[Rfam]
RNA: Eukaryotic large subunit ribosomal RNA, nucleotides 1721 to 2188
Organism: Perca fluviatilis
RNA sequence: GGUAGUAGCAAAUAUUCAAACGAGAACUUUGAAGGCCGAAGUGGAGAAGGGUUCCAUGUGAACAGCAGUUGAACAUGGGUCAGUCGGUCCUAAGAGAUGGGCGAACGCCGUUCGGAAGGGUGGGGCGAUCCUUCGUUACGCUGACCCGAUCAGCGAAAGUGGGGUUCAGAUCCCCGAAUCUGGAGUGGCGGAGAUAGGCGCCGCGAGGCGUCCAGUGCGGUAACGCAAACGAUCCCGGAGAAGCUGGCGGGAGCCCCAGGGAGAGUUCUCUUUUCUUUGUGAAGGGCAGGGCGCCCUGGAAUGGGUUCGCCCCGAGAGAGGGGCCCGUGCCCUGGAAAGCGUCGCGGUUCCGGCGGCGUCUGGUGAGCUCUCGCUGGCCCUUGAAAAUCCGGGGGAGAAGGUGUAAAUCUCGCCAGGCCGCACCCCAUAUCCGCAGCAGGUCUCCAAGGUGAACAGCCUCUGGCAUGU
Dot-bracket structure: ..............((((((.......))))))((((.....((((..((...((((((...((.....)).))))))......(((..(...(.(((.(((....))))))......(((......................))).......)....)..(((........)))....((((....................(((((.......((((....))))......((((((...((((.(((((((.(((.(((((.........)))))....(((((......((((....((((.....))))....))))......)))))......((((((.......))))))..)))...))))))).)))).........))))))..............))))))))).)))...)).....((......)).)))).((((.....))))..))).)..